[Rfam]
RNA sequence: AUCUGCCUGGCUCCCUGGAUGCCAUCUGAGAAGUUUUGGUCAAAAACCACCUUGACCCAAUUUUAGUUGGCAUCAGAGGAGUCAUGCAGUU
Number, nucleotide and partner (000 for none) at each position: 001a091002u000003c089004u088005g087006c086007c000008u084009g083010g082011c081012u080013c079014c078015c000016u076017g000018g074019a073020u072021g071022c070023c069024a068025u000026c000027u065028g064029a063030g000031a000032a000033g000034u000035u000036u000037u000038g000039g000040u000041c000042a000043a000044a000045a000046a000047c000048c000049a000050c000051c000052u000053u000054g000055a000056c000057c000058c000059a000060a000061u000062u000063u029064u028065a027066g000067u000068u024069g023070g022071c021072a020073u019074c018075a000076g016077a000078g014079g013080a012081g011082u010083c009084a008085u000086g006087c005088a004089g003090u000091u001
Shown here is a 91-nucleotide RNA sequence from Rhamnella rubrinervis, a member of the family "mir-160 microRNA precursor family". For this family Rfam cites "Prediction of plant microRNA targets" (Rhoades et al., Cell, 2002). The family has 7 seed sequences and 1,502 matches in Rfam 15.1. The family's consensus secondary structure was predicted with PFOLD.